[Rfam]
The family of this 145-nucleotide RNA from Bacteroides thetaiotaomicron is "GibS sRNA".
Rfam's curators put it in the seed alignment.
A reference for the family is Ryan et al. (2020), "A high-resolution transcriptome map identifies small RNA regulation of metabolism in the gut microbe Bacteroides thetaiotaomicron", Nat Commun.
Rfam classes the family as a small RNA.
About the family: A small RNA with a conserved region in the 5' region in gene clusters, related to carbon metabolism in Bacteroidetes.
RNA sequence: GUGUUUUUCAUAGUAUUAGAUAAAGAUUAAUUAAAAGAGAUUGUACUUCACUUGUGAAAGCUUAGAGUACAUCAGAAGCAGAAGAGUCUGUUUUUUUGAUAAAUGUGUUAGAGCAUCGGUUUUACCAGGCCGAUGCUUUUUUUAU
Numbered sequence: 001g002u003g004u005u006u007u008u009c010a011u012a013g014u015a016u017u018a019g020a021u022a023a024a025g026a027u028u029a030a031u032u033a034a035a036a037g038a039g040a041u042u043g044u045a046c047u048u049c050a051c052u053u054g055u056g057a058a059a060g061c062u063u064a065g066a067g068u069a070c071a072u073c074a075g076a077a078g079c080a081g082a083a084g085a086g087u088c089u090g091u092u093u094u095u096u097u098g099a100u101a102a103a104u105g106u107g108u109u110a111g112a113g114c115a116u117c118g119g120u121u122u123u124a125c126c127a128g129g130c131c132g133a134u135g136c137u138u139u140u141u142u143u144a145u
Stems, first nucleotide, its partner, number of pairs: 043070004051060003077092006111138011
Dot-bracket structure: ..........................................((((....(((....)))......))))......((((((....))))))..................(((((((((((......))))))))))).......